[Rfam]
RNA sequence: UCCGGAAACACGCCCACUCACUCACGCACGCACGGCAGGAGCGGGGGACCCAGGUAAGACGCCAUUGCCGGAAUCCGGCACGGCUCGGGGUGAAGUCGCAUGCACAGCUCGCGACCGGACAGCUCCCGUCCGAACCCGACAGCUCACCUCGCAGGCGCCGGAGAGGAAUG
Numbered sequence: 001u002c003c004g005g006a007a008a009c010a011c012g013c014c015c016a017c018u019c020a021c022u023c024a025c026g027c028a029c030g031c032a033c034g035g036c037a038g039g040a041g042c043g044g045g046g047g048a049c050c051c052a053g054g055u056a057a058g059a060c061g062c063c064a065u066u067g068c069c070g071g072a073a074u075c076c077g078g079c080a081c082g083g084c085u086c087g088g089g090g091u092g093a094a095g096u097c098g099c100a101u102g103c104a105c106a107g108c109u110c111g112c113g114a115c116c117g118g119a120c121a122g123c124u125c126c127c128g129u130c131c132g133a134a135c136c137c138g139a140c141a142g143c144u145c146a147c148c149u150c151g152c153a154g155g156c157g158c159c160g161g162a163g164a165g166g167a168a169u170g
Base pairs, nucleotide, nucleotide: 011157012156013155014154018040019039041152042151043150044149045148046147051087088137089136090135096114097113098112099111117131118130119129120128